[Rfam]
The record is a 402-nucleotide sequence from Pseudomonas sp. FeS53a, which matches "Pseudomonas sRNA CrcZ" in Rfam. Pairs were carried over by alignment from the consensus structure, which was predicted with WAR. Lineage of the source: Bacteria > Pseudomonadati > Pseudomonadota > Pseudomonadaceae > Pseudomonas.

RNA sequence: ACAACAACAAUAAAAACCGUAGUAACCCCACAACAAGAACAAUACGCACCGACUCCAGCACAACAAGAACAAAACCGCGGAGGCGCAGCUAACUGAUUCUUUUGGAGAGGAGUUGCCAUUGGGGCUCGCCCCACGACCAGGCCGAGAACAAUAAAACUGCUUACUCAGGCAGCACCCGAACUGGUUGGAUCGAAUGAUCACGGCACCAUCAGCAUCCAAAGCAAUCCGUUUGCUCUUGACCCUCGAUUCGAGGGCAUAUCCAGAGAUCACGAAUCUGCUGGUACGGGUCAAACAAAAAGAACAGCAAGCCCGGCUCAAUAAUAAAAACAAAGCACGCACCAGUUUGGGGGGGAGCUUCGGCUCCCCCAGUAGCUUUGACACACUCCCGCCGCUUCCUUCACC
Numbered sequence: 001a002c003a004a005c006a007a008c009a010a011u012a013a014a015a016a017c018c019g020u021a022g023u024a025a026c027c028c029c030a031c032a033a034c035a036a037g038a039a040c041a042a043u044a045c046g047c048a049c050c051g052a053c054u055c056c057a058g059c060a061c062a063a064c065a066a067g068a069a070c071a072a073a074a075c076c077g078c079g080g081a082g083g084c085g086c087a088g089c090u091a092a093c094u095g096a097u098u099c100u101u102u103u104g105g106a107g108a109g110g111a112g113u114u115g116c117c118a119u120u121g122g123g124g125c126u127c128g129c130c131c132c133a134c135g136a137c138c139a140g141g142c143c144g145a146g147a148a149c150a151a152u153a154a155a156a157c158u159g160c161u162u163a164c165u166c167a168g169g170c171a172g173c174a175c176c177c178g179a180a181c182u183g184g185u186u187g188g189a190u191c192g193a194a195u196g197a198u199c200a201c202g203g204c205a206c207c208a209u210c211a212g213c214a215u216c217c218a219a220a221g222c223a224a225u226c227c228g229u230u231u232g233c234u235c236u237u238g239a240c241c242c243u244c245g246a247u248u249c250g251a252g253g254g255c256a257u258a259u260c261c262a263g264a265g266a267u268c269a270c271g272a273a274u275c276u277g278c279u280g281g282u283a284c285g286g287g288u289c290a291a292a293c294a295a296a297a298a299g300a301a302c303a304g305c306a307a308g309c310c311c312g313g314c315u316c317a318a319u320a321a322u323a324a325a326a327a328c329a330a331a332g333c334a335c336g337c338a339c340c341a342g343u344u345u346g347g348g349g350g351g352g353a354g355c356u357u358c359g360g361c362u363c364c365c366c367c368a369g370u371a372g373c374u375u376u377g378a379c380a381c382a383c384u385c386c387c388g389c390c391g392c393u394u395c396c397u398u399c400a401c402c
Base pairs, nucleotide, nucleotide: 050085051084053082054081055080056079100221101220102219103218104217114214115213116212134187135186136185137184138183139182140181157172158171159170160169161168240254241253242252243251280384281383282382285379286311287310289308330375331374332373333372347370348367349366350365351364352363353362354361355360
About this RNA
A reference for the family is Moreno et al. (2007), "The Pseudomonas putida Crc global regulator is an RNA binding protein that inhibits translation of the AlkS transcriptional regulator", Mol Microbiol.